The family of this 88-nucleotide sequence from Vulpes vulpes is "mir-8799 microRNA precursor family". The family is grouped with related families in Rfam's "mir-8791 microRNA precursor clan". The family has 7 seed sequences and 20,638 matches in Rfam 15.1. Its family is annotated with RISC complex and miRNA-mediated post-transcriptional gene silencing in the Gene Ontology.

[Rfam]
RNA sequence: AGGGGAGGCCAGAUCUUGGGCUGUGUCCAGGCGCCCUGUUCUCCUGGUCUGCGCUGUUGGAUUCACGCUCCUGGCCGGGCAGCCGCCU
Numbered sequence: 001a002g003g004g005g006a007g008g009c010c011a012g013a014u015c016u017u018g019g020g021c022u023g024u025g026u027c028c029a030g031g032c033g034c035c036c037u038g039u040u041c042u043c044c045u046g047g048u049c050u051g052c053g054c055u056g057u058u059g060g061a062u063u064c065a066c067g068c069u070c071c072u073g074g075c076c077g078g079g080c081a082g083c084c085g086c087c088u
Stems, first nucleotide, its partner, number of pairs: 002086001004084002008080002010077001012075001015074002018071003022067004026061003030055005038049001041047002